Shown here is a 171-nucleotide sequence from Faecalibaculum rodentium, a member of the family "Group II catalytic intron D1-D4-3".
RNA sequence: CUACCGGCAACGGGGUCUCUGAAAGAAGCCGGCGGCAAAGUUCCAGCCCGAGGAACACGAAUCGCAUACGAGGCCACAGACGGAGAUGAGCGUGCUGCGCAGCGCAAAUCGCAAUAGUCGCGGAGCUGUCUGGGGUAAAUGCGGCGGGUAGAUGGAAUGAAAGAUAUGUGA
Numbered sequence: 001c002u003a004c005c006g007g008c009a010a011c012g013g014g015g016u017c018u019c020u021g022a023a024a025g026a027a028g029c030c031g032g033c034g035g036c037a038a039a040g041u042u043c044c045a046g047c048c049c050g051a052g053g054a055a056c057a058c059g060a061a062u063c064g065c066a067u068a069c070g071a072g073g074c075c076a077c078a079g080a081c082g083g084a085g086a087u088g089a090g091c092g093u094g095c096u097g098c099g100c101a102g103c104g105c106a107a108a109u110c111g112c113a114a115u116a117g118u119c120g121c122g123g124a125g126c127u128g129u130c131u132g133g134g135g136u137a138a139a140u141g142c143g144g145c146g147g148g149u150a151g152a153u154g155g156a157a158u159g160a161a162a163g164a165u166a167u168g169u170g171a
Stems, first nucleotide, its partner, number of pairs: 002015001004013003029170001032167001036163001040158006046149005062144006073136003077132007085110003090105004
Its family is annotated with Group II intron splicing in the Gene Ontology. Pairs were carried over by alignment from the consensus structure. Lineage of the source: Bacteria > Bacillati > Bacillota > Erysipelotrichia > Faecalibaculum.